[Rfam]
Small nucleolar RNA SNORD34: a 79-nucleotide RNA from Apostichopus japonicus. Its Rfam clan is "SNORD34 clan". The organism belongs to Apostichopus, within Eukaryota. It scores 51 bits against the family's covariance model. snoRNA U34 is found in intron 5 of the ribosomal protein L13a gene in humans. It is annotated as a C/D-box small nucleolar RNA.
RNA sequence: GCUCGUCAAUGAUGUGAAAUAUUUCCUACCUACAUUGUUUGAAGAAAAUGUGAAAUCAUCAAAUAUGACUGAGACGAGC
Numbered sequence: 001g002c003u004c005g006u007c008a009a010u011g012a013u014g015u016g017a018a019a020u021a022u023u024u025c026c027u028a029c030c031u032a033c034a035u036u037g038u039u040u041g042a043a044g045a046a047a048a049u050g051u052g053a054a055a056u057c058a059u060c061a062a063a064u065a066u067g068a069c070u071g072a073g074a075c076g077a078g079c
Stems, first nucleotide, its partner, number of pairs: 001079002004076004